[Rfam]
The record is a 79-nucleotide RNA sequence from Hermetia illucens, which matches "drz-agam-1 ribozyme" in Rfam. The organism belongs to Hermetia, within Eukaryota. The family's consensus secondary structure is taken from published work. A reference for the family is Webb et al. (2009), "Widespread occurrence of self-cleaving ribozymes", Science. It scores 37 bits against the family's covariance model.
RNA sequence: UGCUACCCAACCCUGUCUCCACCUCCACGUGGUGAUUAUUGGGAGUUCUUUCUCAAUGAGAAACUCCAAAAGGAGAAGG
Numbered sequence: 001u002g003c004u005a006c007c008c009a010a011c012c013c014u015g016u017c018u019c020c021a022c023c024u025c026c027a028c029g030u031g032g033u034g035a036u037u038a039u040u041g042g043g044a045g046u047u048c049u050u051u052c053u054c055a056a057u058g059a060g061a062a063a064c065u066c067c068a069a070a071a072g073g074a075g076a077a078g079g
Stems, first nucleotide, its partner, number of pairs: 012079003016075001018073002021033003044065004049060002052058001